[Rfam]
Small nucleolar RNA SNORD2: a 66-nucleotide RNA sequence from Thelazia callipaeda. A search with the family's covariance model found it, with a score of 38 bits. By type it is a C/D-box small nucleolar RNA. Its family is annotated with nucleolus and RNA processing in the Gene Ontology. The family's consensus secondary structure was predicted with WAR. The family has 17 seed sequences and 1,116 matches in Rfam 15.1. Taxonomically the source falls in Thelazia (Eukaryota, Chromadorea, Thelazioidea, Thelaziidae).
RNA sequence: UAGCACAGUGAUGUUUACCAUCUUUCGGGUCUGAAAAUUGAUGACAACUAUUGUACCUGAGUGCUU
Numbered sequence: 001u002a003g004c005a006c007a008g009u010g011a012u013g014u015u016u017a018c019c020a021u022c023u024u025u026c027g028g029g030u031c032u033g034a035a036a037a038u039u040g041a042u043g044a045c046a047a048c049u050a051u052u053g054u055a056c057c058u059g060a061g062u063g064c065u066u
Stems, first nucleotide, its partner, number of pairs: 002065005